Shown here is a 70-nucleotide sequence from Polypedilum vanderplanki, a member of the family "mir-33 microRNA precursor family". Rfam links the family to the GO terms RISC complex and gene silencing by miRNA.
[Rfam]
RNA sequence: GGACGGUGCAUUGUAGUUGCAUUGCAUGUGAAAUAUAAACAGUGCAAUACUUCUGCAGUGCAAACCAUUU
Numbered sequence: 001g002g003a004c005g006g007u008g009c010a011u012u013g014u015a016g017u018u019g020c021a022u023u024g025c026a027u028g029u030g031a032a033a034u035a036u037a038a039a040c041a042g043u044g045c046a047a048u049a050c051u052u053c054u055g056c057a058g059u060g061c062a063a064a065c066c067a068u069u070u
Base pairs, nucleotide, nucleotide: 001070002069003068006066007062008061009060010059011058012057013056014055015054016053019050021048022047023046024045025044026043027042